[Rfam]
RNA sequence: UCUUUCCAAGGCAAUGGAUUCUGCCAGGCCGCCGUGGCCGAACCGCUUCGAUAGCGAAGCUGAUGACUCCUACUCAAGC
Numbered sequence: 001u002c003u004u005u006c007c008a009a010g011g012c013a014a015u016g017g018a019u020u021c022u023g024c025c026a027g028g029c030c031g032c033c034g035u036g037g038c039c040g041a042a043c044c045g046c047u048u049c050g051a052u053a054g055c056g057a058a059g060c061u062g063a064u065g066a067c068u069c070c071u072a073c074u075c076a077a078g079c
Stems, first nucleotide, its partner, number of pairs: 010025004016070003020066002045060004
This 79-nucleotide sequence from Aminobacter sp. MSH1 belongs to the Rfam family "Fluoride riboswitch aptamer (crcB RNA motif)". A search with the family's covariance model found it, with a score of 49 bits. Gene Ontology terms of the family: response to fluoride and positive regulation of gene expression.